[Rfam]
RNA sequence: UGACGACUUUUUCCCCUAUUGCCUUGAGGCCUGGCACUAGGAUUUUAAGUCAUCAUAAAUUGGUAUUUGAUUCUCUUCACUCAGAGGACAUGUGAUAAUGGGAUUAUCUGUUCUAUGUCAUUUGCAGAAUCAAACACUU
Numbered sequence: 001u002g003a004c005g006a007c008u009u010u011u012u013c014c015c016c017u018a019u020u021g022c023c024u025u026g027a028g029g030c031c032u033g034g035c036a037c038u039a040g041g042a043u044u045u046u047a048a049g050u051c052a053u054c055a056u057a058a059a060u061u062g063g064u065a066u067u068u069g070a071u072u073c074u075c076u077u078c079a080c081u082c083a084g085a086g087g088a089c090a091u092g093u094g095a096u097a098a099u100g101g102g103a104u105u106a107u108c109u110g111u112u113c114u115a116u117g118u119c120a121u122u123u124g125c126a127g128a129a130u131c132a133a134a135c136a137c138u139u
Stems, first nucleotide, its partner, number of pairs: 001055003005051004015041004020036004069131006082117002085114006094108004

Annotation
Shown here is a 139-nucleotide RNA sequence from Octodon degus, a member of the family "Small nucleolar RNA SNORA79". Gene Ontology terms of the family: nucleolus and RNA processing. Rfam describes the family as follows. ACA65 (SNORA79) is a member of the H/ACA class of snoRNAs that guide the sites of modification of uridines to pseudouridines. The source organism's lineage runs through Eukaryota, Bilateria, Gnathostomata, Euarchontoglires and Octodon. It scores 109 bits against the family's covariance model. For this family Rfam cites "A computational screen for mammalian pseudouridylation guide H/ACA RNAs" (Schattner et al., RNA, 2006).